[Rfam]
RNA sequence: UCAAGACAAAAGUUCUGUAACACUUCGACUCUGAGUAAAUAGAAGUCAGUGCACUACAGAACUUUGUUUCGGA
Numbered sequence: 001u002c003a004a005g006a007c008a009a010a011a012g013u014u015c016u017g018u019a020a021c022a023c024u025u026c027g028a029c030u031c032u033g034a035g036u037a038a039a040u041a042g043a044a045g046u047c048a049g050u051g052c053a054c055u056a057c058a059g060a061a062c063u064u065u066g067u068u069u070c071g072g073a
Stems, first nucleotide, its partner, number of pairs: 004069005010064008021051004027047004

mir-148/mir-152 microRNA precursor family: a 73-nucleotide RNA from Scyliorhinus torazame. A reference for the family is Kim et al. (2004), "Identification of many microRNAs that copurify with polyribosomes in mammalian neurons", Proc Natl Acad Sci U S A. Rfam 15.1 lists 1,272 matches to the family in 609 species. Gene Ontology terms of the family: miRNA-mediated post-transcriptional gene silencing and RISC complex.